This 157-nucleotide RNA sequence from Enterococcus saccharolyticus belongs to the Rfam family "glmS glucosamine-6-phosphate activated ribozyme aptamer". Pairs were carried over by alignment from the consensus structure, which is taken from published work. This entry contains a glucosamine-6-phosphate activated ribozyme that is found in the mRNA for GlmS. GlmS is an enzyme that uses fructose-6-phosphate and glutamine to generate glucosamine-6-phosphate. The ribozyme catalyses self cleavage of the glmS mRNA that is thought to regulate GlmS activity.
RNA sequence: UACCAAUUUAAAGCGCCAGAUCUAUUGAGACUACUUCAAAUAGAUGACGAGGACAGAGCUUAUCGAAUAUUCGGCGGGUGGCUCUAGGGUCUGCACUCUACAGACAAGGACAAAACAAGACUGUGAGGUCUACACAAAACACUUGUCAUGCAGUUAG
Numbered sequence: 001u002a003c004c005a006a007u008u009u010a011a012a013g014c015g016c017c018a019g020a021u022c023u024a025u026u027g028a029g030a031c032u033a034c035u036u037c038a039a040a041u042a043g044a045u046g047a048c049g050a051g052g053a054c055a056g057a058g059c060u061u062a063u064c065g066a067a068u069a070u071u072c073g074g075c076g077g078g079u080g081g082c083u084c085u086a087g088g089g090u091c092u093g094c095a096c097u098c099u100a101c102a103g104a105c106a107a108g109g110a111c112a113a114a115a116c117a118a119g120a121c122u123g124u125g126a127g128g129u130c131u132a133c134a135c136a137a138a139a140c141a142c143u144u145g146u147c148a149u150g151c152a153g154u155u156a157g
Stems, first nucleotide, its partner, number of pairs: 020045007028036001055085005063074004086099005103147006118131005
The family's RNA type in Rfam is riboswitch. On this family, see Hampel and Tinsley, Biochemistry 2006: "Evidence for preorganization of the glmS ribozyme ligand binding pocket".